[Rfam]
RNA: Streptococcus sRNA 10
Organism: Streptococcus gordonii
RNA sequence: CUCAAGGGAGUAGCUAACGGAAUAACCGUUACAUGGUCGUCAAUACGAAAGCAAUUUCCGGCCUUGUAUGAAAUAGCGAGACUUGUUUAAUAAACAGGUCUCUUUUU
Numbered sequence: 001c002u003c004a005a006g007g008g009a010g011u012a013g014c015u016a017a018c019g020g021a022a023u024a025a026c027c028g029u030u031a032c033a034u035g036g037u038c039g040u041c042a043a044u045a046c047g048a049a050a051g052c053a054a055u056u057u058c059c060g061g062c063c064u065u066g067u068a069u070g071a072a073a074u075a076g077c078g079a080g081a082c083u084u085g086u087u088u089a090a091u092a093a094a095c096a097g098g099u100c101u102c103u104u105u106u107u
Stems, first nucleotide, its partner, number of pairs: 005029001007027002011024002014020001030068004035063005042057002047052001078102011